[Rfam]
RNA sequence: UUCAUGCCGUCUGGAGAGCCGCCACCCACGCGUGGCGCACCGAAGGAGCAAGCCGCACGCCCGCACCGGGCGGUUGGCGAAUCUCUCAGGUACCAAGGACAGGGGGAGCGGC
Numbered sequence: 001u002u003c004a005u006g007c008c009g010u011c012u013g014g015a016g017a018g019c020c021g022c023c024a025c026c027c028a029c030g031c032g033u034g035g036c037g038c039a040c041c042g043a044a045g046g047a048g049c050a051a052g053c054c055g056c057a058c059g060c061c062c063g064c065a066c067c068g069g070g071c072g073g074u075u076g077g078c079g080a081a082u083c084u085c086u087c088a089g090g091u092a093c094c095a096a097g098g099a100c101a102g103g104g105g106g107a108g109c110g111g112c
Stems, first nucleotide, its partner, number of pairs: 007106002010103004020037004039091003042087002046085003052078004